[Rfam]
The family of this 56-nucleotide RNA from Nocardioides marmorisolisilvae is "Actino-pnp RNA".
Rfam classes the family as a cis-regulatory element.
Pairs were carried over by alignment from the consensus structure, which is taken from published work.
Taxonomically the source falls in Nocardioides (Bacteria, Bacillati, Actinomycetes, Nocardioidaceae).
A search with the family's covariance model found it, with a score of 50 bits.
RNA sequence: GCCGGCCUUUGGUAGUGGCCCCCCGUUCCGACGGUGGGCUUCGAUCGAAGACCGGC
Numbered sequence: 001g002c003c004g005g006c007c008u009u010u011g012g013u014a015g016u017g018g019c020c021c022c023c024c025g026u027u028c029c030g031a032c033g034g035u036g037g038g039c040u041u042c043g044a045u046c047g048a049a050g051a052c053c054g055g056c
Base pairs, nucleotide, nucleotide: 001056002055003054004053005052007050009048010047011046012045013044017040018039019038020037021036023034024033025032026031